[Rfam]
RNA sequence: CGGGUUGGCCGGGCCAUCGCGUCGCCGCCAGGCCCCGCCCGGCAGAUGACUCCGUGAUCUGCCCGGCGGAUAACGGUGGCGCCGAGGAACGUCCGGACUCCGCAGGGCUGGAUGGUGGGUAACACCCACUCGGGGAGACCCGCAGGCCAGUGCCACAGAAAACAGACCGCCGGAGGGCCGUGCGCCCUCGGGUAAGGGUGAAACGGUGGUGUAAGAGACCACCAGCGCACCGGGCGACCGGUGCGGCUCGGUAAACCCCAUCCGGAGCAAAGCCGAACAGGAUGCGCAGGAGCUCGUCUCCGACAGGGCUGCCCGCCCGAGCAUCCGGGUUGGCUGCUUGAGGGCCGUGGCAACACGGUGCCCAGAUGGAUGAUGGCCGGCGCCGGGGGAGCAAUCGCCCGGCGUCACAGAAUCCGGCGUACACGCCAACCCGUCCC
Numbered sequence: 001c002g003g004g005u006u007g008g009c010c011g012g013g014c015c016a017u018c019g020c021g022u023c024g025c026c027g028c029c030a031g032g033c034c035c036c037g038c039c040c041g042g043c044a045g046a047u048g049a050c051u052c053c054g055u056g057a058u059c060u061g062c063c064c065g066g067c068g069g070a071u072a073a074c075g076g077u078g079g080c081g082c083c084g085a086g087g088a089a090c091g092u093c094c095g096g097a098c099u100c101c102g103c104a105g106g107g108c109u110g111g112a113u114g115g116u117g118g119g120u121a122a123c124a125c126c127c128a129c130u131c132g133g134g135g136a137g138a139c140c141c142g143c144a145g146g147c148c149a150g151u152g153c154c155a156c157a158g159a160a161a162a163c164a165g166a167c168c169g170c171c172g173g174a175g176g177g178c179c180g181u182g183c184g185c186c187c188u189c190g191g192g193u194a195a196g197g198g199u200g201a202a203a204c205g206g207u208g209g210u211g212u213a214a215g216a217g218a219c220c221a222c223c224a225g226c227g228c229a230c231c232g233g234g235c236g237a238c239c240g241g242u243g244c245g246g247c248u249c250g251g252u253a254a255a256c257c258c259c260a261u262c263c264g265g266a267g268c269a270a271a272g273c274c275g276a277a278c279a280g281g282a283u284g285c286g287c288a289g290g291a292g293c294u295c296g297u298c299u300c301c302g303a304c305a306g307g308g309c310u311g312c313c314c315g316c317c318c319g320a321g322c323a324u325c326c327g328g329g330u331u332g333g334c335u336g337c338u339u340g341a342g343g344g345c346c347g348u349g350g351c352a353a354c355a356c357g358g359u360g361c362c363c364a365g366a367u368g369g370a371u372g373a374u375g376g377c378c379g380g381c382g383c384c385g386g387g388g389g390a391g392c393a394a395u396c397g398c399c400c401g402g403c404g405u406c407a408c409a410g411a412a413u414c415c416g417g418c419g420u421a422c423a424c425g426c427c428a429a430c431c432c433g434u435c436c437c
Base pairs, nucleotide, nucleotide: 001433002432003431004430005429006428007427008426009425011422012378013377014376015375016374017373018372020084021083023081024080025079026078027077028076089420090419091418093417094416095415096414097413098267099266100265101264105314106313107312108311110263111262112261113260114259115129116128117127118126119125130144131142132141133140134139145258146257150256151255152252153251154250167197168196169193170192171191173189174188175187176186177185205223206222207221208220209219210218225247226245227244228243229242230241231240232239233238271335272334273333274332280326281325282324283323284322285321306318307317308316309315342361344359345358346357347356348355349354
A member of the RNA family "Bacterial RNase P class A" from Nesterenkonia cremea, 437 nucleotides long.
Pairs were carried over by alignment from the consensus structure, which is taken from published work.
The source organism's lineage runs through Bacteria, Bacillati, Micrococcales, Micrococcaceae and Nesterenkonia.
The match comes from Rfam's covariance-model search (264 bits).